Shown here is a 70-nucleotide RNA sequence from Paenirhizobium daejeonense, a member of the family "ybhL leader". Lineage of the source: Bacteria > Pseudomonadati > Alphaproteobacteria > Hyphomicrobiales > Paenirhizobium.
[Rfam]
RNA sequence: AAGGCAUGCUGGAGCUCCGCAGCGGCGCCUGGGCAAUUGGCCCGACACCGUAAAUUCUUUCGGGGCUUGA
Numbered sequence: 001a002a003g004g005c006a007u008g009c010u011g012g013a014g015c016u017c018c019g020c021a022g023c024g025g026c027g028c029c030u031g032g033g034c035a036a037u038u039g040g041c042c043c044g045a046c047a048c049c050g051u052a053a054a055u056u057c058u059u060u061c062g063g064g065g066c067u068u069g070a
Base pairs, nucleotide, nucleotide: 012068013067014066015065016064017063018062019061023050024049025048030044031043032042033041034039
Record summary:
On this family, see Corbino et al., Genome Biol 2005: "Evidence for a second class of S-adenosylmethionine riboswitches and other regulatory RNA motifs in alpha-proteobacteria". About the family: This family is a putative regulatory RNA structure that is found upstream of an uncharacterized membrane protein in alpha-proteobacteria. Pairs were carried over by alignment from the consensus structure. The match comes from Rfam's covariance-model search (72 bits). Gene Ontology term of the family: regulation of gene expression.